Description: The record is a 131-nucleotide sequence from Salmonella enterica, which matches "RtT RNA" in Rfam. It is one of the family's seed sequences. About the family: This family represents a bacterial cis-regulatory element known as RtT RNA. The exact function of RtT is unknown although it is thought that it may be involved in changing the cellular response in relation to amino acid starvation. Rfam classes the family as a cis-regulatory element. On this family, see Bosl and Kersten, Nucleic Acids Res 1991: "A novel RNA product of the tyrT operon of Escherichia coli".
Nucleotides: 131
Base pairs, nucleotide, nucleotide: 015122016121017120018119019118020117021116023114033094034093036092037091042089043088044087045086049059050058066082067081068080069079070078071077
Number, partner (000 for none) and nucleotide at each position: 001000a002000u003000u004000c005000u006000a007000c008000c009000c010000a011000u012000g013000c014000g015122g016121g017120g018119a019118a020117g021116g022000a023114u024000g025000a026000g027000a028000a029000g030000c031000u032000u033094c034093g035000a036092c037091u038000a039000a040000g041000g042089u043088u044087c045086g046000a047000u048000u049059c050058g051000a052000g053000c054000g055000c056000a057000g058050c059049g060000a061000g062000a063000a064000a065000g066082c067081g068080u069079u070078g071077c072000c073000g074000c075000a076000g077071g078070c079069a080068a081067c082066g083000a084000c085000c086045c087044g088043a089042a090000g091037g092036g093034c094033g095000a096000a097000g098000c099000g100000c101000g102000c103000u104000g105000c106000g107000c108000u109000g110000a111000g112000u113000c114023a115000u116021c117020c118019u119018u120017c121016c122015c123000c124000c125000a126000c127000c128000a129000c130000c131000a